RNA: DUF3800-IX RNA
RNA sequence: GACCUGUUUUCUGAACUGUCACCGGAUGGUGGCGUGCUUGGGACACCCAAGAUAGGAAAUGGGUCGCUU
Numbered sequence: 001g002a003c004c005u006g007u008u009u010u011c012u013g014a015a016c017u018g019u020c021a022c023c024g025g026a027u028g029g030u031g032g033c034g035u036g037c038u039u040g041g042g043a044c045a046c047c048c049a050a051g052a053u054a055g056g057a058a059a060u061g062g063g064u065c066g067c068u069u
Stems, first nucleotide, its partner, number of pairs: 001065008010057003017034007037051004